[Rfam]
RNA sequence: GUAUAUGCGUUAGGGAUUGUAGCGGCAUCCUUUUUUUGCUUUUUUAGACUUAGUGUUUUAGCAAAAAAAGAUACAGCGCAAAGCCCGACCCCUU
Numbered sequence: 001g002u003a004u005a006u007g008c009g010u011u012a013g014g015g016a017u018u019g020u021a022g023c024g025g026c027a028u029c030c031u032u033u034u035u036u037u038g039c040u041u042u043u044u045u046a047g048a049c050u051u052a053g054u055g056u057u058u059u060a061g062c063a064a065a066a067a068a069a070g071a072u073a074c075a076g077c078g079c080a081a082a083g084c085c086c087g088a089c090c091c092c093u094u
Base pairs, nucleotide, nucleotide: 013086014085015084017082018081022077023076027072028071029070033067034066035065036064037063038062039061040060
This 94-nucleotide RNA from Pelobium manganitolerans belongs to the Rfam family "Flavo-1 RNA". The family has 201 seed sequences and 7,497 matches in Rfam 15.1. It scores 62 bits against the family's covariance model.